[Rfam]
Record summary:
The family of this 124-nucleotide RNA sequence from Brassica napus is "MIR9563 microRNA precursor family". The family's consensus secondary structure was predicted with RNAalifold. The match comes from Rfam's covariance-model search (108 bits).
RNA sequence: AGAAUAUAAUAACCUGUCUCUUAACUUUUAACUAAAAAAGCUAAGAAACGUCUCUUAAAUUCUUAUUUAAGAGACGGUUCUUAGCUUUUUUAAUUAAAAAUUAAGAGACGGGUUCUUAUAUUCU
Numbered sequence: 001a002g003a004a005u006a007u008a009a010u011a012a013c014c015u016g017u018c019u020c021u022u023a024a025c026u027u028u029u030a031a032c033u034a035a036a037a038a039a040g041c042u043a044a045g046a047a048a049c050g051u052c053u054c055u056u057a058a059a060u061u062c063u064u065a066u067u068u069a070a071g072a073g074a075c076g077g078u079u080c081u082u083a084g085c086u087u088u089u090u091u092a093a094u095u096a097a098a099a100a101u102u103a104a105g106a107g108a109c110g111g112g113u114u115c116u117u118a119u120a121u122u123c124u
Stems, first nucleotide, its partner, number of pairs: 001124009011114014026099006033092007041084007
Dot-bracket structure: (((((((((.((((((((((((((.((((((.(((((((.(((((((..............................))))))).))))))).)))))).)))))))))))))).)))))))))